About this RNA
Shown here is an 80-nucleotide RNA from Orthohepacivirus hominis, a member of the family "SL669 non-coding RNA". The family's RNA type in Rfam is cis-regulatory element. The organism belongs to Hepatitis C virus genotype 6, within Viruses. It is one of the family's seed sequences. The base pairs follow the family's consensus structure, which was predicted with RNAfold.
RNA sequence: ACGACCCCCGGCGAAGAUCCCGCAACAUGGGUAAGGUCAUCGAUUCCCUAACCUGUGGCUUCGCCGACCUCAUGGGGUAC
Numbered sequence: 001a002c003g004a005c006c007c008c009c010g011g012c013g014a015a016g017a018u019c020c021c022g023c024a025a026c027a028u029g030g031g032u033a034a035g036g037u038c039a040u041c042g043a044u045u046c047c048c049u050a051a052c053c054u055g056u057g058g059c060u061u062c063g064c065c066g067a068c069c070u071c072a073u074g075g076g077g078u079a080c
Stems, first nucleotide, its partner, number of pairs: 003080001004078005009066005015061002018058002021055002029048003033044001036041001